[Rfam]
RNA sequence: CUACUGUGCCGCCUGGUGGAUGGCUCGGCUCGAGUGCCGACGACGGACGUGCCAAGCUGCGAUAAGCCUGAGGGAGCCGCACGGAGGCGUAGAACUCAGGAUGUCCGAAUGGGAAUCCCUCUAACAAUUGCUGUGCGCAAUGGGGAACGACCGGAAUUGAAACAUCUUAGUACGGUCAGGAAGAGAAAUCGAAUGAGACGCCGUUAGUAACCGCGAGUGAAGGCGGCUCAGUCCAAACUGAAGCCUUCUGGGCGAUGUGGUGUAUGGGCUGACUUUCAUCGAAUGAACGAUCGUGGGAAGUCUCCUGAAACGGAGCGCGAUACAGGGUGACAGCCCCGUAUAGCGAUCAAGUAGUUCGUGCGUCAGUUCCAGAGUAGCGGGGACCGGAAAUUCCUCGUGAAUGUAGCAGGCAUCGACUGCUAAGACUAAGUACUCCUCGAGACCGAUAGUGAACAAGUAGCGUGAGCGAACGCUGAAAAGCAUCCCGAGAAGGGAGCUGAAAUAGAGCCUGAAAUCAGGUGGCGAUGGAGC
Numbered sequence: 001c002u003a004c005u006g007u008g009c010c011g012c013c014u015g016g017u018g019g020a021u022g023g024c025u026c027g028g029c030u031c032g033a034g035u036g037c038c039g040a041c042g043a044c045g046g047a048c049g050u051g052c053c054a055a056g057c058u059g060c061g062a063u064a065a066g067c068c069u070g071a072g073g074g075a076g077c078c079g080c081a082c083g084g085a086g087g088c089g090u091a092g093a094a095c096u097c098a099g100g101a102u103g104u105c106c107g108a109a110u111g112g113g114a115a116u117c118c119c120u121c122u123a124a125c126a127a128u129u130g131c132u133g134u135g136c137g138c139a140a141u142g143g144g145g146a147a148c149g150a151c152c153g154g155a156a157u158u159g160a161a162a163c164a165u166c167u168u169a170g171u172a173c174g175g176u177c178a179g180g181a182a183g184a185g186a187a188a189u190c191g192a193a194u195g196a197g198a199c200g201c202c203g204u205u206a207g208u209a210a211c212c213g214c215g216a217g218u219g220a221a222g223g224c225g226g227c228u229c230a231g232u233c234c235a236a237a238c239u240g241a242a243g244c245c246u247u248c249u250g251g252g253c254g255a256u257g258u259g260g261u262g263u264a265u266g267g268g269c270u271g272a273c274u275u276u277c278a279u280c281g282a283a284u285g286a287a288c289g290a291u292c293g294u295g296g297g298a299a300g301u302c303u304c305c306u307g308a309a310a311c312g313g314a315g316c317g318c319g320a321u322a323c324a325g326g327g328u329g330a331c332a333g334c335c336c337c338g339u340a341u342a343g344c345g346a347u348c349a350a351g352u353a354g355u356u357c358g359u360g361c362g363u364c365a366g367u368u369c370c371a372g373a374g375u376a377g378c379g380g381g382g383a384c385c386g387g388a389a390a391u392u393c394c395u396c397g398u399g400a401a402u403g404u405a406g407c408a409g410g411c412a413u414c415g416a417c418u419g420c421u422a423a424g425a426c427u428a429a430g431u432a433c434u435c436c437u438c439g440a441g442a443c444c445g446a447u448a449g450u451g452a453a454c455a456a457g458u459a460g461c462g463u464g465a466g467c468g469a470a471c472g473c474u475g476a477a478a479a480g481c482a483u484c485c486c487g488a489g490a491a492g493g494g495a496g497c498u499g500a501a502a503u504a505g506a507g508c509c510u511g512a513a514a515u516c517a518g519g520u521g522g523c524g525a526u527g528g529a530g531c
Stems, first nucleotide, its partner, number of pairs: 007524010022509001023473002027444002029441006036433001044107004048061003067100006076088003111120003127141005148179001149177005159166002189196002200227005210218002230427004238260003270365004280358004294343001296341001300316001302315004319323001325337003377398007405421005460467002

Rfam assigns this 531-nucleotide part of an RNA from Halarchaeum acidiphilum to the family "Archaeal large subunit ribosomal RNA". The family has 91 seed sequences and 2,955 matches in Rfam 15.1. The family's consensus secondary structure is taken from published work.